This 107-nucleotide sequence from Ectobacillus ponti belongs to the Rfam family "SAM riboswitch aptamer (S box leader)". It scores 74 bits against the family's covariance model.

RNA sequence: AACUUAUCAAGAACAGGCAGAGGGAACAGGCCCGAUGAAGCCUUGGCAGCAGCCGCGAAAGCGGAAUUUGUGCCAAAUCCUGCAGGUGUAAUCCUGAAAGAUAAGAG
Numbered sequence: 001a002a003c004u005u006a007u008c009a010a011g012a013a014c015a016g017g018c019a020g021a022g023g024g025a026a027c028a029g030g031c032c033c034g035a036u037g038a039a040g041c042c043u044u045g046g047c048a049g050c051a052g053c054c055g056c057g058a059a060a061g062c063g064g065a066a067u068u069u070g071u072g073c074c075a076a077a078u079c080c081u082g083c084a085g086g087u088g089u090a091a092u093c094c095u096g097a098a099a100g101a102u103a104a105g106a107g
Stems, first nucleotide, its partner, number of pairs: 003105006013044001015043004022033003027082004045074004050070002054064001078099001083096004
Pairs were carried over by alignment from the consensus structure, which is taken from published work.